[Rfam]
RNA sequence: CGGUAGCUGGUACCACCGGGCUCACACGAGCCAAAACCAGCCUCAUGUCCGCACAGGACAAUCACAACCCGCACGGG
Number, nucleotide and partner (000 for none) at each position: 001c018002g017003g016004u015005a000006g041007c040008u039009g038010g037011u000012a000013c000014c000015a004016c003017c002018g001019g032020g031021c030022u029023c000024a000025c000026a000027c000028g000029a022030g021031c020032c019033a000034a000035a000036a000037c010038c009039a008040g007041c006042c000043u000044c000045a000046u000047g059048u058049c057050c056051g000052c000053a000054c000055a000056g050057g049058a048059c047060a000061a000062u000063c000064a000065c000066a000067a000068c000069c000070c000071g000072c000073a000074c000075g000076g000077g000
DUF3085 RNA: a 77-nucleotide RNA sequence. Rfam classes the family as a cis-regulatory element.